[Rfam]
RNA: Small nucleolar RNA SNORA77
Organism: Saimiri boliviensis
RNA sequence: ACAGACUCACUCUGUACUUGGCUGCGGCCCCAGUCAGGUAUUUCUUUUUUCAUCUGCCAGAGAGAUAUUGCUGUGGCCACCUGACCUGCUGAGGGUGAUGCAGCUUCCCAGGGGACGUAGGG
Numbered sequence: 001a002c003a004g005a006c007u008c009a010c011u012c013u014g015u016a017c018u019u020g021g022c023u024g025c026g027g028c029c030c031c032a033g034u035c036a037g038g039u040a041u042u043u044c045u046u047u048u049u050u051c052a053u054c055u056g057c058c059a060g061a062g063a064g065a066u067a068u069u070g071c072u073g074u075g076g077c078c079a080c081c082u083g084a085c086c087u088g089c090u091g092a093g094g095g096u097g098a099u100g101c102a103g104c105u106u107c108c109c110a111g112g113g114g115a116c117g118u119a120g121g122g
Stems, first nucleotide, its partner, number of pairs: 002056004014044001015040006022033003069113001070104006078097005